[Rfam]
RNA sequence: AGGUACUUUGGUUGCUUAAGGCCAAGGGCGGUAGCGUG
Numbered sequence: 001a002g003g004u005a006c007u008u009u010g011g012u013u014g015c016u017u018a019a020g021g022c023c024a025a026g027g028g029c030g031g032u033a034g035c036g037u038g
Stems, first nucleotide, its partner, number of pairs: 008025005